RNA sequence: ACAGUUCCUCGUUAGGUGAGGCUCCUGUAUGAAGACAAGCUACUGCCCAGAAACGUCCAAAGACGCCAACGGGUCAGCAGGGACUAUCGAGUUAAGGUAGUUCAUAACGUAGCUGGAUGAGAUUUUUCUUAGACUAUGUCAUACAGUGCUAAAGCUCUACGAAGGAGGCGUUUA
Number, nucleotide and partner (000 for none) at each position: 001a000002c000003a000004g000005u170006u000007c168008c167009u166010c165011g160012u159013u095014a000015g156016g155017u154018g000019a000020g150021g149022c148023u000024c000025c146026u145027g144028u143029a142030u141031g140032a139033a000034g000035a000036c000037a000038a000039g113040c112041u111042a110043c109044u000045g074046c073047c072048c071049a000050g000051a000052a000053a000054c065055g064056u063057c062058c000059a000060a000061a000062g057063a056064c055065g054066c000067c000068a000069a000070c000071g048072g047073g046074u045075c000076a000077g000078c000079a000080g000081g103082g102083a101084c000085u000086a098087u097088c096089g000090a000091g000092u000093u000094a000095a013096g088097g087098u086099a000100g000101u083102u082103c081104a000105u000106a000107a000108c000109g043110u042111a041112g040113c039114u000115g134116g000117a000118u000119g000120a000121g000122a000123u000124u000125u000126u000127u000128c000129u000130u000131a000132g000133a000134c115135u000136a000137u000138g000139u032140c031141a030142u029143a028144c027145a026146g025147u000148g022149c021150u020151a000152a000153a000154g017155c016156u015157c000158u000159a012160c011161g000162a000163a000164g000165g010166a009167g008168g007169c000170g005171u000172u000173u000174a000

M-box riboswitch aptamer (ykoK leader): a 174-nucleotide sequence from Planococcaceae bacterium Storch 2/2-2.
Rfam describes the family as follows. M-box riboswitch, also know as ykoK leader is described as a metaloregulatory RNA that sense divalent metals and function as a genetic control element of genes related to divalent metal transport in bacteria.
For this family Rfam cites "New RNA motifs suggest an expanded scope for riboswitches in bacterial genetic control" (Barrick et al., Proc Natl Acad Sci U S A, 2004).
Lineage of the source: Bacteria > Bacillati > Bacilli > Caryophanales > Caryophanaceae.
A search with the family's covariance model found it, with a score of 135 bits.